[Rfam]
Description:
This 105-nucleotide sequence from Sphingomonas sanxanigenens belongs to the Rfam family "Repression of heat shock gene expression (ROSE) element". This family represents a 5' UTR cis-regulatory element found in heat shock mRNAs and is known as the ROSE (repression of heat shock gene expression) element. The ROSE element is a negative regulator of heat shock gene expression. The secondary structure is thought to be regulated by temperature. The source organism's lineage runs through Bacteria, Pseudomonadati, Pseudomonadota, Sphingomonas and Sphingomonas sanxanigenens. It is annotated as an RNA thermoregulator.
RNA sequence: CCGGGCGCCUUGUUCGGGUCCGGUGGGACAUAGAGGGCGCCGGCUCUCCGUUACCGGCGCAGCUCAUGCCCAGAUCGCUUCACGAGGAGGAUUUGGUGAUGAGAA
Numbered sequence: 001c002c003g004g005g006c007g008c009c010u011u012g013u014u015c016g017g018g019u020c021c022g023g024u025g026g027g028a029c030a031u032a033g034a035g036g037g038c039g040c041c042g043g044c045u046c047u048c049c050g051u052u053a054c055c056g057g058c059g060c061a062g063c064u065c066a067u068g069c070c071c072a073g074a075u076c077g078c079u080u081c082a083c084g085a086g087g088a089g090g091a092u093u094u095g096g097u098g099a100u101g102a103g104a105a
Stems, first nucleotide, its partner, number of pairs: 001023006008017002037060007063103005070096007078089003